The family of this 67-nucleotide sequence from Lentibacillus salicampi is "Bacillaceae-1 RNA".
It is annotated as a small RNA.
Taxonomically the source falls in Lentibacillus (Bacteria, Bacillati, Bacillota, Caryophanales).
RNA sequence: AUAUUGGGAACAAAGGCUAAACCCGCCACCUCCUGUGGCAACGCCUUUGUGACCUGCAUCCUGCAGG
Numbered sequence: 001a002u003a004u005u006g007g008g009a010a011c012a013a014a015g016g017c018u019a020a021a022c023c024c025g026c027c028a029c030c031u032c033c034u035g036u037g038g039c040a041a042c043g044c045c046u047u048u049g050u051g052a053c054c055u056g057c058a059u060c061c062u063g064c065a066g067g
Base pairs, nucleotide, nucleotide: 011049012048013047014046015045016044017043025039026038027037028036029035053067054066055065056064057063